[Rfam]
The family of this 57-nucleotide RNA from Actinomycetospora cinnamomea is "F6 TB sRNA".
The family's RNA type in Rfam is small RNA.
The source organism's lineage runs through Bacteria, Bacillati, Actinomycetota, Pseudonocardiales and Actinomycetospora.
Pairs were carried over by alignment from the consensus structure, which is taken from published work.
The match comes from Rfam's covariance-model search (56 bits).

RNA sequence: CGGGUGGCCCCGCGGGGUCGUCGGACCCCCGACCCGACGAUGCCGCGGGGCCGUCCU
Dot-bracket structure: .((((.(((((((((.((((((.............)))))).))))))))).)))).